[Rfam]
RNA sequence: AUGGUCUGGGGAAAGGUGCCUGUGUGGUUGCACUUUCCCCGUGGACUGUGCAGCCGGUACCAGGCAGCCCCACCCUGACCUAGAGUGAAUCCCCCGGGGGAGUCUUCCCUGGGGUUUGAAUUUGCAAUAACAGGUGUGACCAUUCUAGCAGCAGCUUGAUGAUCAUGUAUGACACUGCAAGGAGGU
Numbered sequence: 001a002u003g004g005u006c007u008g009g010g011g012a013a014a015g016g017u018g019c020c021u022g023u024g025u026g027g028u029u030g031c032a033c034u035u036u037c038c039c040c041g042u043g044g045a046c047u048g049u050g051c052a053g054c055c056g057g058u059a060c061c062a063g064g065c066a067g068c069c070c071c072a073c074c075c076u077g078a079c080c081u082a083g084a085g086u087g088a089a090u091c092c093c094c095c096g097g098g099g100g101a102g103u104c105u106u107c108c109c110u111g112g113g114g115u116u117u118g119a120a121u122u123u124g125c126a127a128u129a130a131c132a133g134g135u136g137u138g139a140c141c142a143u144u145c146u147a148g149c150a151g152c153a154g155c156u157u158g159a160u161g162a163u164c165a166u167g168u169a170u171g172a173c174a175c176u177g178c179a180a181g182g183a184g185g186u
Stems, first nucleotide, its partner, number of pairs: 003080004008075003015069003019064004024060002026055005032049002092113003096108004121181006128174001131171002137165003141161004147156003
RNA: Small Cajal body specific RNA 16